[Rfam]
RNA sequence: CUGGUGAUGCUGUAGCAGCACGGAAUGGUUUGUGGGUUACACUGAGAUACAGGCCAUACUGUGCUGCCGCA
Numbered sequence: 001c002u003g004g005u006g007a008u009g010c011u012g013u014a015g016c017a018g019c020a021c022g023g024a025a026u027g028g029u030u031u032g033u034g035g036g037u038u039a040c041a042c043u044g045a046g047a048u049a050c051a052g053g054c055c056a057u058a059c060u061g062u063g064c065u066g067c068c069g070c071a
Stems, first nucleotide, its partner, number of pairs: 012070002015067009025057010